[Rfam]
RNA sequence: AUGACGCGUAGCAUGCCCGUUGUGGGAUUACUCUGAUGUUUAUAUGCUAUUUAAUUGCUUUUGGGUAACGGGGUGUUACAUUUA
Numbered sequence: 001a002u003g004a005c006g007c008g009u010a011g012c013a014u015g016c017c018c019g020u021u022g023u024g025g026g027a028u029u030a031c032u033c034u035g036a037u038g039u040u041u042a043u044a045u046g047c048u049a050u051u052u053a054a055u056u057g058c059u060u061u062u063g064g065g066u067a068a069c070g071g072g073g074u075g076u077u078a079c080a081u082u083u084a
Stems, first nucleotide, its partner, number of pairs: 004083001006081001008079007016072006